[Rfam]
RNA sequence: GCGUCGUCGUGCGACUGGCGUUCAAGGGCUCCGCAACGGAGUCCGUGGUGGGCAACCACCGUGGAGCACGACCUGCUGCGGGCAACAGCCGGCAGCGGUGUUUCGCCGUGCGCCUGGGCAGCCCUG
Numbered sequence: 001g002c003g004u005c006g007u008c009g010u011g012c013g014a015c016u017g018g019c020g021u022u023c024a025a026g027g028g029c030u031c032c033g034c035a036a037c038g039g040a041g042u043c044c045g046u047g048g049u050g051g052g053c054a055a056c057c058a059c060c061g062u063g064g065a066g067c068a069c070g071a072c073c074u075g076c077u078g079c080g081g082g083c084a085a086c087a088g089c090c091g092g093c094a095g096c097g098g099u100g101u102u103u104c105g106c107c108g109u110g111c112g113c114c115u116g117g118g119c120a121g122c123c124c125u126g
Stems, first nucleotide, its partner, number of pairs: 006072007015063001017114005048059004103121001105119003